[Rfam]
RNA sequence: GCCAAUGAUGAUUCAAUCCAUGUGAAAUAAUGUGUUAUGGAGUCAAGUCCCUUUCUUUAUAAGGAGAACUUGCUUAGGAAGCUGCAUUUCACAUGAUAUUAUUGGAUUUUACUAAGGC
Numbered sequence: 001g002c003c004a005a006u007g008a009u010g011a012u013u014c015a016a017u018c019c020a021u022g023u024g025a026a027a028u029a030a031u032g033u034g035u036u037a038u039g040g041a042g043u044c045a046a047g048u049c050c051c052u053u054u055c056u057u058u059a060u061a062a063g064g065a066g067a068a069c070u071u072g073c074u075u076a077g078g079a080a081g082c083u084g085c086a087u088u089u090c091a092c093a094u095g096a097u098a099u100u101a102u103u104g105g106a107u108u109u110u111a112c113u114a115a116g117g118c
Base pairs, nucleotide, nucleotide: 001118002117003116049064050063052061
Shown here is a 118-nucleotide sequence from Nyssa sinensis, a member of the family "Small nucleolar RNA Z278". Lineage of the source: Eukaryota > Magnoliopsida > asterids > Cornales > Nyssa. The family's consensus secondary structure was predicted with PFOLD. The family has 7 seed sequences and 1,130 matches in Rfam 15.1. Rfam links the family to the GO terms RNA processing and nucleolus. From the family's description: snoZ278 is a C/D box small nucleolar RNA. Its methylation guide targets have not been reported.